[Rfam]
RNA sequence: AGAUGUCUUCAGGGCAGGGUGAGAUUCCCGACCGGCGGUAUAGUCCGCGAGCGUUUUUUAAAACGCAGGAAUUGGCAUAAGUUCAAUUCAGGAUUUGGUGAAAUUCCAAAACCGACAGUAUAGUCUGGAUGAGAGAAGAUGUGU
Numbered sequence: 001a002g003a004u005g006u007c008u009u010c011a012g013g014g015c016a017g018g019g020u021g022a023g024a025u026u027c028c029c030g031a032c033c034g035g036c037g038g039u040a041u042a043g044u045c046c047g048c049g050a051g052c053g054u055u056u057u058u059u060a061a062a063a064c065g066c067a068g069g070a071a072u073u074g075g076c077a078u079a080a081g082u083u084c085a086a087u088u089c090a091g092g093a094u095u096u097g098g099u100g101a102a103a104u105u106c107c108a109a110a111a112c113c114g115a116c117a118g119u120a121u122a123g124u125c126u127g128g129a130u131g132a133g134a135g136a137a138g139a140u141g142u143g144u
Stems, first nucleotide, its partner, number of pairs: 003142008017029003031124002033114002035048004043112002053088001094110005116127003

FMN riboswitch aptamer (RFN element): a 144-nucleotide RNA sequence from Peptacetobacter hiranonis. Pairs were carried over by alignment from the consensus structure, which is taken from published work. The source organism's lineage runs through Bacteria, Clostridia, Peptostreptococcales, Peptostreptococcaceae and Peptacetobacter hiranonis. Rfam describes the family as follows. The RFN element is a highly conserved domain that is found frequently in the 5'-untranslated regions of prokaryotic mRNAs that encode for flavin mononucleotide (FMN) biosynthesis and transport proteins. Rfam links the family to the GO term FMN binding.